Rfam assigns this 85-nucleotide RNA sequence from Lucilia cuprina to the family "mir-999 microRNA precursor family".
[Rfam]
RNA sequence: CUCAAUUACUGCGACAUAGUCAUACAGCAAAUGUUGUGUAAAUUGAGUCCAAUGUUAACUGUAAGACUGUGUCUUGGUUUUUGAG
Numbered sequence: 001c002u003c004a005a006u007u008a009c010u011g012c013g014a015c016a017u018a019g020u021c022a023u024a025c026a027g028c029a030a031a032u033g034u035u036g037u038g039u040a041a042a043u044u045g046a047g048u049c050c051a052a053u054g055u056u057a058a059c060u061g062u063a064a065g066a067c068u069g070u071g072u073c074u075u076g077g078u079u080u081u082u083g084a085g
Base pairs, nucleotide, nucleotide: 003083004082005081008078009077010076011075013073014072015071016070017069018068019067020066021065023063024062025061026060027059030056031055032054033053034052035051036050
Rfam links the family to the GO terms RISC complex and miRNA-mediated post-transcriptional gene silencing. On this family, see Stark et al., Genome Res 2007: "Systematic discovery and characterization of fly microRNAs using 12 Drosophila genomes".